Background
The family of this 122-nucleotide RNA from endosymbiont 'TC1' of Trimyema compressum is "Molybdenum/Tungsten riboswitch aptamer (Moco RNA motif)".
RNA sequence: GCUAAAGCAUAUAACCGAUCUUUUAAACCUAAGAUUUAUUAUGAAUUAUGGUUUUUAAGACAGGGGGUUGAGGGAAACCUUAACGCCUUCCACAUUUGAAAAGGUUUUGUGGAUAAAAUAAU
Dot-bracket structure: ..(.......(.((((..((((..(((((...((((.......))))..)))))..))))..(((.(((((((....))))))).)))((.......))...)))).).......)......
The family's consensus secondary structure is taken from published work.